This 91-nucleotide RNA from Geomicrobium sp. JCM 19038 belongs to the Rfam family "pan motif". The base pairs follow the family's consensus structure, which is taken from published work. By type it is a cis-regulatory element. The match comes from Rfam's covariance-model search (55 bits).
RNA sequence: GAGACGAUAUCCAUAUGGAGUCGUACUCGAAAGAAAGAACGCUUUGCUUGAGUACUAAUUCGCCUUGAUCUGAAAAGACAGGGACGGAGGG
Numbered sequence: 001g002a003g004a005c006g007a008u009a010u011c012c013a014u015a016u017g018g019a020g021u022c023g024u025a026c027u028c029g030a031a032a033g034a035a036a037g038a039a040c041g042c043u044u045u046g047c048u049u050g051a052g053u054a055c056u057a058a059u060u061c062g063c064c065u066u067g068a069u070c071u072g073a074a075a076a077g078a079c080a081g082g083g084a085c086g087g088a089g090g091g
Stems, first nucleotide, its partner, number of pairs: 001028003004024005010019002060087003063083005069078003